[Rfam]
The record is a 137-nucleotide RNA from Aliikangiella marina, which matches "RtT RNA" in Rfam.
RNA sequence: AAUGAGUCUGUGUCGAGAGGGAUAAGAACCCAAUAAAGAGGGUUCGACAAAACUGCUAGUCAGUUUUGAACGCCGGAGCAACGCGACGGCGGCCCGAAGGGUAAGGCGGUAGCCGAAUAAUCCCUCUCUCUCCGCCA
Numbered sequence: 001a002a003u004g005a006g007u008c009u010g011u012g013u014c015g016a017g018a019g020g021g022a023u024a025a026g027a028a029c030c031c032a033a034u035a036a037a038g039a040g041g042g043u044u045c046g047a048c049a050a051a052a053c054u055g056c057u058a059g060u061c062a063g064u065u066u067u068g069a070a071c072g073c074c075g076g077a078g079c080a081a082c083g084c085g086a087c088g089g090c091g092g093c094c095c096g097a098a099g100g101g102u103a104a105g106g107c108g109g110u111a112g113c114c115g116a117a118u119a120a121u122c123c124c125u126c127u128c129u130c131u132c133c134g135c136c137a
Stems, first nucleotide, its partner, number of pairs: 015128007023120001034103002043098004050064001071091005
The organism belongs to Aliikangiella, within Bacteria. Rfam describes the family as follows. This family represents a bacterial cis-regulatory element known as RtT RNA. The exact function of RtT is unknown although it is thought that it may be involved in changing the cellular response in relation to amino acid starvation.